[Rfam]
RNA sequence: GCGAAGGGUCGUGACUGGCGCGCUCGGGUGGAAGCAACCACCGGGAAGCGACGAAGCUGCUGGCGGCGCCGUGCGCCUGGGUGCCUCCG
Numbered sequence: 001g002c003g004a005a006g007g008g009u010c011g012u013g014a015c016u017g018g019c020g021c022g023c024u025c026g027g028g029u030g031g032a033a034g035c036a037a038c039c040a041c042c043g044g045g046a047a048g049c050g051a052c053g054a055a056g057c058u059g060c061u062g063g064c065g066g067c068g069c070c071g072u073g074c075g076c077c078u079g080g081g082u083g084c085c086u087c088c089g
Stems, first nucleotide, its partner, number of pairs: 003057001008052005015045002017077005028041004066084005